Description:
Rfam assigns this 69-nucleotide sequence from Acerihabitans arboris to the family "Retron msr RNA". The base pairs follow the family's consensus structure, which was predicted with PFOLD. For this family Rfam cites "A partial copy of msDNA from a new retron element is likely a retrotransposed DNA found in the myxobacterium Nannocystis exedens" (Lampson et al., Gene, 2002). From the family's description: Retron elements are found in a wide range of mainly Gram-negative bacteria. The organism belongs to Acerihabitans, within Bacteria. It is annotated as a non-coding RNA gene.

RNA sequence: ACUCUUUAGCGUUACGGGCCUUUUUUAGCCUUGUCGGGCGAUUCGCCAGACACUAACUUAUUGAGCACA
Numbered sequence: 001a002c003u004c005u006u007u008a009g010c011g012u013u014a015c016g017g018g019c020c021u022u023u024u025u026u027a028g029c030c031u032u033g034u035c036g037g038g039c040g041a042u043u044c045g046c047c048a049g050a051c052a053c054u055a056a057c058u059u060a061u062u063g064a065g066c067a068c069a
Base pairs, nucleotide, nucleotide: 005065006064007063008062009061032052033051034050035049037047038046039045040044